Rfam assigns this 79-nucleotide RNA from Sarcophilus harrisii to the family "mir-27 microRNA precursor family". On this family, see Chen et al., Genes Dev 2005: "The developmental miRNA profiles of zebrafish as determined by small RNA cloning". Lineage of the source: Eukaryota > Eumetazoa > Gnathostomata > Mammalia > Sarcophilus. The base pairs follow the family's consensus structure, which was predicted with RNAalifold. The family has 82 seed sequences and 1,440 matches in Rfam 15.1.

[Rfam]
RNA sequence: ACAAGGUGCAGAGCUUAGCUGAUUGGUGAACAGUAAUUGAUUUCCUCUUUGUUCACAGUGGCUAAGUUCUGCACCUGAA
Dot-bracket structure: ..........((((((((((.....(((((((.................)))))))...))))))))))..........